The family of this 84-nucleotide sequence from Clarias magur is "mir-143 microRNA precursor family". A search with the family's covariance model found it, with a score of 96 bits. Rfam 15.1 lists 657 matches to the family in 637 species. The family's consensus secondary structure was predicted with RNAalifold.

RNA sequence: AGUCCUUAGGCCCAAGGUGCAGUGCUGCAUCUCUGGUCAGUUGGGAGUCUGAGAUGAAGCACUGUAGCACGGGAAAAGGAAUAC
Numbered sequence: 001a002g003u004c005c006u007u008a009g010g011c012c013c014a015a016g017g018u019g020c021a022g023u024g025c026u027g028c029a030u031c032u033c034u035g036g037u038c039a040g041u042u043g044g045g046a047g048u049c050u051g052a053g054a055u056g057a058a059g060c061a062c063u064g065u066a067g068c069a070c071g072g073g074a075a076a077a078g079g080a081a082u083a084c
Stems, first nucleotide, its partner, number of pairs: 011073003016068001018066009028056006035049002037046002